[Rfam]
RNA: mir-150 microRNA precursor family
Organism: Ictalurus punctatus
Nucleotides: 061
Base pairs, nucleotide, nucleotide: 001059002058003056004055005054009049010048013047014046015045017044018043019042020041021040
Number, partner (000 for none) and nucleotide at each position: 001059u002058c003056u004055c005054c006000c007000a008000a009049u010048c011000c012000u013047u014046g015045u016000a017044c018043c019042a020041g021040u022000g023000u024000c025000u026000g027000a028000u029000u030000u031000a032000c033000a034000g035000a036000u037000g038000a039000c040021g041020c042019u043018g044017g045015a046014c047013g048010g049009g050000g051000u052000u053000u054005g055004g056003g057000g058002g059001g060000g061000g